This 75-nucleotide RNA from Streptomyces natalensis belongs to the Rfam family "ASpks TB sRNA". It is one of the family's seed sequences. The source organism's lineage runs through Bacteria, Actinomycetota, Kitasatosporales, Streptomycetaceae and Streptomyces.
[Rfam]
RNA sequence: CUUCACCGACCCCAGCCACAACGGCCGUUCCACAGGCCGCUGUUGGCCGUACGUGGCCAGCAGCGCCUGCGCCUC
Dot-bracket structure: ..............(((.....))).....(.(....((...(((.(((....))).)))...))...).)....